[Rfam]
RNA: c-di-GMP-I-GGC riboswitch aptamer
RNA sequence: CCCGACAAAGGCAAAGCCAGGGCAACCUGGCGACGCAAAGUCACGGGUCCCACCGGGAUCGCCGAACUGCCGAAG
Numbered sequence: 001c002c003c004g005a006c007a008a009a010g011g012c013a014a015a016g017c018c019a020g021g022g023c024a025a026c027c028u029g030g031c032g033a034c035g036c037a038a039a040g041u042c043a044c045g046g047g048u049c050c051c052a053c054c055g056g057g058a059u060c061g062c063c064g065a066a067c068u069g070c071c072g073a074a075g
Base pairs, nucleotide, nucleotide: 001075003072004071011036012035016031017030018029019028020027021026034061039068040067041066044064045063046062047059048058049057